[Rfam]
RNA sequence: GGCGAAUCCAUUGGCUGCCGAGCCGCCCGGUUACCGCCGGGUGGGGAGGGCGCCGAAAAGAGGAGCCG
Number, nucleotide and partner (000 for none) at each position: 001g000002g000003c000004g000005a000006a000007u000008c000009c000010a000011u056012u055013g054014g000015c000016u052017g051018c050019c049020g000021a000022g000023c044024c043025g042026c041027c040028c039029g038030g037031u036032u000033a000034c000035c000036g031037c030038c029039g028040g027041g026042u025043g024044g023045g000046g000047a000048g000049g019050g018051c017052g016053c000054c013055g012056a011057a000058a000059a000060g000061a000062g000063g000064a000065g000066c000067c000068g000